[Rfam]
RNA sequence: GGCAGUGACACGGGGUGCCGGACGAUAUCCGGCUGAGAGAAGACCCGUCGAACCUGAUCUAGCUCGUACUAGCGAAGGGAUUGUCGCCAUGCCGCUCG
Numbered sequence: 001g002g003c004a005g006u007g008a009c010a011c012g013g014g015g016u017g018c019c020g021g022a023c024g025a026u027a028u029c030c031g032g033c034u035g036a037g038a039g040a041a042g043a044c045c046c047g048u049c050g051a052a053c054c055u056g057a058u059c060u061a062g063c064u065c066g067u068a069c070u071a072g073c074g075a076a077g078g079g080a081u082u083g084u085c086g087c088c089a090u091g092c093c094g095c096u097c098g
Stems, first nucleotide, its partner, number of pairs: 006086005011047004016041001017033005053078003059072004
About this RNA:
A member of the RNA family "TPP riboswitch aptamer (THI element)" from Kocuria coralli, 98 nucleotides long. Lineage of the source: Bacteria > Actinomycetota > Actinomycetes > Micrococcaceae > Kocuria.